[Rfam]
RNA sequence: GAGUGCUACAGCUCUUUUAGAAUUUGCCAAGCAGGUUUUCUCAUCUUUGCUAGAAACCCCUC
Numbered sequence: 001g002a003g004u005g006c007u008a009c010a011g012c013u014c015u016u017u018u019a020g021a022a023u024u025u026g027c028c029a030a031g032c033a034g035g036u037u038u039u040c041u042c043a044u045c046u047u048u049g050c051u052a053g054a055a056a057c058c059c060c061u062c
Stems, first nucleotide, its partner, number of pairs: 034059002037056005042049002
This 62-nucleotide RNA sequence from Macaca nemestrina belongs to the Rfam family "U7 small nuclear RNA". The match comes from Rfam's covariance-model search (49 bits).